[Rfam]
RNA sequence: GCGCCCUGCCUUUCAGGCAUCCUCUCCUAAAACUCAGAAGGCCGGUCUUUGGAUCGGCCAUUUUUUUGGCUCUCC
Numbered sequence: 001g002c003g004c005c006c007u008g009c010c011u012u013u014c015a016g017g018c019a020u021c022c023u024c025u026c027c028u029a030a031a032a033c034u035c036a037g038a039a040g041g042c043c044g045g046u047c048u049u050u051g052g053a054u055c056g057g058c059c060a061u062u063u064u065u066u067u068g069g070c071u072c073u074c075c
Base pairs, nucleotide, nucleotide: 008018009017010016011015040059041058042057043056044055045054046053047052
Dot-bracket structure: .......((((...)))).....................((((((((....))))))))................